[Rfam]
RNA sequence: AUAUUCCUUCAGGGUCAGGUGAGAAGGCAAAGUCCUUCAAUUCCGAACCGGCGGUAUAGCCCGCGAGCACUAAGCUGAUCCGGUGAAAUUCCGGAGCCGACAGUAUAGUCUGGAUGGGAGAAGGAGUUA
Numbered sequence: 001a002u003a004u005u006c007c008u009u010c011a012g013g014g015u016c017a018g019g020u021g022a023g024a025a026g027g028c029a030a031a032g033u034c035c036u037u038c039a040a041u042u043c044c045g046a047a048c049c050g051g052c053g054g055u056a057u058a059g060c061c062c063g064c065g066a067g068c069a070c071u072a073a074g075c076u077g078a079u080c081c082g083g084u085g086a087a088a089u090u091c092c093g094g095a096g097c098c099g100a101c102a103g104u105a106u107a108g109u110c111u112g113g114a115u116g117g118g119a120g121a122a123g124g125a126g127u128u129a
Stems, first nucleotide, its partner, number of pairs: 003127008018044002047109002049099002051064004059097002067075002079095005101112003
FMN riboswitch aptamer (RFN element): a 129-nucleotide sequence from Dethiobacter alkaliphilus. The organism belongs to Dethiobacter alkaliphilus, within Bacteria. The family's consensus secondary structure is taken from published work. Gene Ontology term of the family: FMN binding.